[Rfam]
RNA sequence: UAGAGCGUCACUGGAUGCAGCGGUUCAUCGAUCUGUUCCCCAAACCUGAUGAAUGAAUUGAAAAUAAAUAUGAAGGAAAAAGAAGAACGAGAGAGAGAGAGAGAGAUAGGAAAAAAGGAAUUGGUCGAUAAACCUCUGCAUCCAGCGCUCACUCC
Numbered sequence: 001u002a003g004a005g006c007g008u009c010a011c012u013g014g015a016u017g018c019a020g021c022g023g024u025u026c027a028u029c030g031a032u033c034u035g036u037u038c039c040c041c042a043a044a045c046c047u048g049a050u051g052a053a054u055g056a057a058u059u060g061a062a063a064a065u066a067a068a069u070a071u072g073a074a075g076g077a078a079a080a081a082g083a084a085g086a087a088c089g090a091g092a093g094a095g096a097g098a099g100a101g102a103g104a105g106a107u108a109g110g111a112a113a114a115a116a117g118g119a120a121u122u123g124g125u126c127g128a129u130a131a132a133c134c135u136c137u138g139c140a141u142c143c144a145g146c147g148c149u150c151a152c153u154c155c
Stems, first nucleotide, its partner, number of pairs: 013143003018138003022134004027129007036120003
Rfam assigns this 155-nucleotide sequence from Cynara cardunculus to the family "MIR162_1 microRNA precursor family". Its family is annotated with RISC complex and miRNA-mediated post-transcriptional gene silencing in the Gene Ontology. The base pairs follow the family's consensus structure, which was predicted with RNAalifold. A search with the family's covariance model found it, with a score of 85 bits. Taxonomically the source falls in Cynara cardunculus subsp. cardunculus (Eukaryota, Streptophytina, Spermatophyta, Pentapetalae).